[Rfam]
RNA sequence: CCAUCUGUAUCACCAGAUGACCCUAAGACUCUGAAUAAAGCAGCGAGUCUGACAAUGUAACGAUAUUUGGCUUUAUGCCGAAUGGGAACAGAACCGUGAGAGGACGUUCUUCCUGAUAACCACAAUCGGGUAAGUGC
Numbered sequence: 001c002c003a004u005c006u007g008u009a010u011c012a013c014c015a016g017a018u019g020a021c022c023c024u025a026a027g028a029c030u031c032u033g034a035a036u037a038a039a040g041c042a043g044c045g046a047g048u049c050u051g052a053c054a055a056u057g058u059a060a061c062g063a064u065a066u067u068u069g070g071c072u073u074u075a076u077g078c079c080g081a082a083u084g085g086g087a088a089c090a091g092a093a094c095c096g097u098g099a100g101a102g103g104a105c106g107u108u109c110u111u112c113c114u115g116a117u118a119a120c121c122a123c124a125a126u127c128g129g130g131u132a133a134g135u136g137c
Stems, first nucleotide, its partner, number of pairs: 002019006027049005032040001064084008085110004095100001112130006
Notes: Shown here is a 137-nucleotide RNA sequence from Shewanella putrefaciens, a member of the family "Group II catalytic intron D1-D4-7". Rfam's curators put it in the seed alignment. The organism belongs to Shewanella putrefaciens, within Bacteria. The family has 244 seed sequences and 1,296 matches in Rfam 15.1. Group II introns are found in rRNA, tRNA and mRNA of organelles in fungi, plants and protists, and also in mRNA in bacteria.